[Rfam]
RNA sequence: GAUUGCAGUGAUGACUCAGAAAUUUCAAGCUCAACAGACCGGAAUGCAGGCUUCUCUCUUUCAGAAGAAGCUUGCGUGUCGACUACCCCGCUGAACUGAGCGAUC
Numbered sequence: 001g002a003u004u005g006c007a008g009u010g011a012u013g014a015c016u017c018a019g020a021a022a023u024u025u026c027a028a029g030c031u032c033a034a035c036a037g038a039c040c041g042g043a044a045u046g047c048a049g050g051c052u053u054c055u056c057u058c059u060u061u062c063a064g065a066a067g068a069a070g071c072u073u074g075c076g077u078g079u080c081g082a083c084u085a086c087c088c089c090g091c092u093g094a095a096c097u098g099a100g101c102g103a104u105c
Stems, first nucleotide, its partner, number of pairs: 001105006

Rfam assigns this 105-nucleotide RNA from Nelumbo nucifera to the family "Small nucleolar RNA Z107/R87".
NCBI's taxonomy places the organism under Eukaryota, Euphyllophyta, Mesangiospermae, Nelumbonaceae, Nelumbo.
The match comes from Rfam's covariance-model search (85 bits).
Pairs were carried over by alignment from the consensus structure, which was predicted with RNAfold.